[Rfam]
Nucleotides: 254
Stems, first nucleotide, its partner, number of pairs: 002254005008249005015207006023066007038053005071239002074237004087096003100114001102112003116180003121176006130170004138165004148158003211222002214219001
Number, partner (000 for none) and nucleotide at each position: 001000g002254c003253g004252c005251a006250u007000g008249c009248c010247u011246g012245a013000a014000a015207a016206c017205u018204u019203g020202u021000a022000a023066u024065c025064u026063a027062a028061g029060c030000u031000a032000c033000a034000a035000a036000c037000u038053g039052a040051g041050a042049a043000c044000u045000g046000a047000g048000a049042u050041u051040c052039u053038c054000c055000c056000g057000c058000g059000u060029g061028c062027u063026u064025a065024g066023g067000g068000g069000a070000a071239a072238g073000u074237c075236c076235c077234c078000g079000g080000a081000c082000g083000c084000u085000g086000c087096g088095c089094a090000g091000a092000g093000a094089u095088g096087c097000c098000g099000c100114g101000c102112u103111u104110g105000a106000a107000a108000c109000g110104c111103a112102g113000c114100c115000c116180a117179u118178g119000c120000g121176c122175c123174c124173g125172u126171c127000g128000u129000c130170g131169c132168g133167c134000g135000a136000c137000a138165c139164u140163g141162c142000c143000g144000a145000g146000a147000c148158g149157u150156c151000a152000u153000u154000g155000c156150g157149a158148c159000c160000g161000a162141g163140c164139a165138g166000c167133g168132c169131g170130c171126g172125a173124c174123g175122g176121g177000c178118c179117a180116u181000g182000u183000u184000u185000g186000u187000c188000c189000u190000c191000g192000c193000g194000a195000u196000a197000g198000a199000u200000a201000u202020g203019c204018a205017g206016g207015u208000g209000u210000u211222g212221u213000a214219c215000u216000u217000g218000u219214g220000c221212a222211c223000u224000c225000c226000a227000a228000c229000u230000u231000a232000a233000c234077g235076g236075g237074g238072c239071u240000c241000a242000a243000u244000c245012u246011c247010a248009g249008g250006a251005u252004g253003c254002g